Rfam assigns this 99-nucleotide RNA sequence from Flexivirga oryzae to the family "Bacterial small signal recognition particle RNA". The base pairs follow the family's consensus structure, which is taken from published work. The family is grouped with related families in Rfam's "SRP clan". For this family Rfam cites "SRPDB: Signal Recognition Particle Database" (Rosenblad et al., Nucleic Acids Res, 2003). By type it is a non-coding RNA gene. Lineage of the source: Bacteria > Bacillati > Micrococcales > Dermacoccaceae > Flexivirga.

RNA sequence: GCCGGACCCCUCGUGCGGUGGUACCUCUCCGAACUCCCCCAGGGCAGGAAUGCAGCAAGGGUAGGAGAGCUCUUCCAGGUGCGCGAGGGGUUCUUUUUU
Numbered sequence: 001g002c003c004g005g006a007c008c009c010c011u012c013g014u015g016c017g018g019u020g021g022u023a024c025c026u027c028u029c030c031g032a033a034c035u036c037c038c039c040c041a042g043g044g045c046a047g048g049a050a051u052g053c054a055g056c057a058a059g060g061g062u063a064g065g066a067g068a069g070c071u072c073u074u075c076c077a078g079g080u081g082c083g084c085g086a087g088g089g090g091u092u093c094u095u096u097u098u099u
Base pairs, nucleotide, nucleotide: 004093005092006091007090008089010087011086012085013084014083015082016079019077020076021075023073025069026068027067028066029065030064036061037060038059044053045052046051